[Rfam]
RNA sequence: GAGCCCGGAGGUCACCACCCGCCAGCGCGAUGCGCCCGCGGGUGUCGCAGCG
Numbered sequence: 001g002a003g004c005c006c007g008g009a010g011g012u013c014a015c016c017a018c019c020c021g022c023c024a025g026c027g028c029g030a031u032g033c034g035c036c037c038g039c040g041g042g043u044g045u046c047g048c049a050g051c052g
Base pairs, nucleotide, nucleotide: 016044017043018042019041020040021039022038025035026034027033028032
Dot-bracket structure: ...............(((((((..((((...))))..)))))))........
This 52-nucleotide RNA sequence from Methylobrevis albus belongs to the Rfam family "ffh sRNA". Taxonomically the source falls in Methylobrevis (Bacteria, Pseudomonadati, Alphaproteobacteria, Hyphomicrobiales). It scores 60 bits against the family's covariance model.